[Rfam]
RNA sequence: GAGUCUAACAUAUGUGCGAGUAUGCGGGUGGCAAACCUGUAUGCGUAAUGAAAGUGAGAGGCACGUGCAUUGCCGACCGACUUUGAUCUUCUGAGAGAGGUUUGAGUAUCAGCAUGUCUGUUAGGACCCGAAAGAUGGUGAACUAUGCCUGAGGAGGGUGAAGCCAGGAGAAAUUCUGGUGGAAGCUCGUAGCGAUACUGACGUGCAAAUCGUUCGUCACACUUGGGUAUAGGGGCGAAAGACUAAUCGAACCAUCUAGUAGCUGGUU
Numbered sequence: 001g002a003g004u005c006u007a008a009c010a011u012a013u014g015u016g017c018g019a020g021u022a023u024g025c026g027g028g029u030g031g032c033a034a035a036c037c038u039g040u041a042u043g044c045g046u047a048a049u050g051a052a053a054g055u056g057a058g059a060g061g062c063a064c065g066u067g068c069a070u071u072g073c074c075g076a077c078c079g080a081c082u083u084u085g086a087u088c089u090u091c092u093g094a095g096a097g098a099g100g101u102u103u104g105a106g107u108a109u110c111a112g113c114a115u116g117u118c119u120g121u122u123a124g125g126a127c128c129c130g131a132a133a134g135a136u137g138g139u140g141a142a143c144u145a146u147g148c149c150u151g152a153g154g155a156g157g158g159u160g161a162a163g164c165c166a167g168g169a170g171a172a173a174u175u176c177u178g179g180u181g182g183a184a185g186c187u188c189g190u191a192g193c194g195a196u197a198c199u200g201a202c203g204u205g206c207a208a209a210u211c212g213u214u215c216g217u218c219a220c221a222c223u224u225g226g227g228u229a230u231a232g233g234g235g236c237g238a239a240a241g242a243c244u245a246a247u248c249g250a251a252c253c254a255u256c257u258a259g260u261a262g263c264u265g266g267u268u
Base pairs, nucleotide, nucleotide: 005124006123007122008121009120010119012117013116014115015114016113017112020044021043022042025039026038027037028036029035048055049054060074061073062072063071076107077106078104079103080102081100082099083098087094088093127266128265130263134256135255136254137253138252139251143232144231145230146229147228148227149226150225151224152223153222154220156188157187158186159185163180164179165178166177167176168175169174192217193216194215195214197213198212200211201210234244235243
Rfam assigns this 268-nucleotide part of an RNA from Chromerida sp. RM11 to the family "Eukaryotic large subunit ribosomal RNA". The literature on the family includes a 2002 paper in BMC Bioinformatics by Cannone et al., "The comparative RNA web (CRW) site: an online database of comparative sequence and structure information for ribosomal, intron, and other RNAs". Pairs were carried over by alignment from the consensus structure, which is taken from published work. It is one of the family's seed sequences.